[Rfam]
A member of the RNA family "pan motif" from Thermobacillus composti, 125 nucleotides long. The organism belongs to Thermobacillus composti, within Bacteria. It is annotated as a cis-regulatory element.
RNA sequence: GAGGCGGUAUCGCAUUUUCCCGCGAAUCGCACUCGGGACUUAUGGAUUUGAAUUUCAUCUUGCACGGAACGUUCAUCCGGGUUGGCGCAUUCUGCUCAGAGCCGUGAGGGGACCGAGACAGAAGG
Number, nucleotide and partner (000 for none) at each position: 001g034002a033003g032004g030005c029006g028007g027008u026009a000010u025011c024012g023013c022014a000015u000016u000017u000018u000019c000020c000021c000022g013023c012024g011025a010026a008027u007028c006029g005030c004031a000032c003033u002034c001035g000036g000037g000038a000039c000040u000041u000042a000043u000044g000045g000046a000047u000048u000049u000050g000051a000052a000053u000054u000055u000056c000057a000058u000059c000060u000061u000062g000063c000064a000065c000066g000067g000068a000069a000070c000071g000072u000073u000074c000075a000076u000077c000078c000079g000080g000081g000082u000083u000084g000085g000086c000087g000088c000089a000090u000091u000092c121093u120094g119095c117096u116097c115098a000099g113100a000101g000102c111103c110104g000105u000106g000107a000108g000109g000110g103111g102112a000113c099114c000115g097116a096117g095118a000119c094120a093121g092122a000123a000124g000125g000